Record summary:
Shown here is a 100-nucleotide sequence from Dreissena polymorpha, a member of the family "Small nucleolar RNA SNORD16". Its family is annotated with nucleolus and RNA processing in the Gene Ontology. The source organism's lineage runs through Eukaryota, Autobranchia, Heteroconchia, Euheterodonta and Dreissena. For this family Rfam cites "A novel small nucleolar RNA (U16) is encoded inside a ribosomal protein intron and originates by processing of the pre-mRNA" (Fragapane et al., EMBO J, 1993).
Nucleotides: 100
Stems, first nucleotide, its partner, number of pairs: 002099002022082004031072001033070003040064002042058005
Number, partner (000 for none) and nucleotide at each position: 001000u002099g003098c004000u005000a006000u007000g008000a009000u010000g011000u012000u013000a014000g015000u016000a017000a018000u019000u020000u021000u022082c023081a024080u025079c026000a027000g028000a029000u030000g031072a032000c033070a034069a035068g036000u037000a038000a039000g040064g041063u042058g043057a044056c045055a046054g047000u048000u049000g050000c051000c052000u053000u054046c055045u056044g057043u058042c059000a060000u061000a062000u063041g064040c065000c066000u067000u068035c069034u070033u071000c072031u073000c074000u075000a076000a077000a078000u079025g080024a081023u082022g083000a084000c085000g086000a087000c088000a089000u090000u091000u092000a093000a094000c095000u096000c097000a098003g099002c100000u